[Rfam]
Notes: The family of this 135-nucleotide RNA sequence from Pseudarcicella hirudinis is "SAM riboswitch aptamer (S box leader)".
RNA sequence: GAUUUAUACAGAAGAAGGGAGAGAAUAGGCUCUGUGAACUUCUGGCAACCUGCCCUCAUUGUGGAAAAGGUGCUAAUUCCUACCCGAUUUCAGAAAACGGUUUAAGCUGUCGUCUGAAACAGGGAAAUAUAAAGC
Numbered sequence: 001g002a003u004u005u006a007u008a009c010a011g012a013a014g015a016a017g018g019g020a021g022a023g024a025a026u027a028g029g030c031u032c033u034g035u036g037a038a039c040u041u042c043u044g045g046c047a048a049c050c051u052g053c054c055c056u057c058a059u060u061g062u063g064g065a066a067a068a069g070g071u072g073c074u075a076a077u078u079c080c081u082a083c084c085c086g087a088u089u090u091c092a093g094a095a096a097a098c099g100g101u102u103u104a105a106g107c108u109g110u111c112g113u114c115u116g117a118a119a120c121a122g123g124g125a126a127a128u129a130u131a132a133a134g135c
Stems, first nucleotide, its partner, number of pairs: 001135001003133006013043005021032003026082004044074004049070002051066001053064002078127001083124003